The record is a 110-nucleotide sequence from Kingdonia uniflora, which matches "MIR398 microRNA precursor family" in Rfam.

RNA sequence: AUGAGUCCAACAGGAGCGUCCUGAAGAGUACAUGAACUUAAAAGUGAGAUUGGUUUACUAGCUGUAUUACUUAUGUUCAUGUGUUCUCAGGUCGCCCCUGCUGGACUAUU
Numbered sequence: 001a002u003g004a005g006u007c008c009a010a011c012a013g014g015a016g017c018g019u020c021c022u023g024a025a026g027a028g029u030a031c032a033u034g035a036a037c038u039u040a041a042a043a044g045u046g047a048g049a050u051u052g053g054u055u056u057a058c059u060a061g062c063u064g065u066a067u068u069a070c071u072u073a074u075g076u077u078c079a080u081g082u083g084u085u086c087u088c089a090g091g092u093c094g095c096c097c098c099u100g101c102u103g104g105a106c107u108a109u110u
Stems, first nucleotide, its partner, number of pairs: 007104002011100004016095003023088001025087009
The family has 14 seed sequences and 627 matches in Rfam 15.1.
The organism belongs to Kingdonia, within Eukaryota.
The match comes from Rfam's covariance-model search (61 bits).
Its family is annotated with miRNA-mediated post-transcriptional gene silencing and RISC complex in the Gene Ontology.
The literature on the family includes a 2004 paper in Mol Cell by Jones-Rhoades and Bartel, "Computational identification of plant microRNAs and their targets, including a stress-induced miRNA".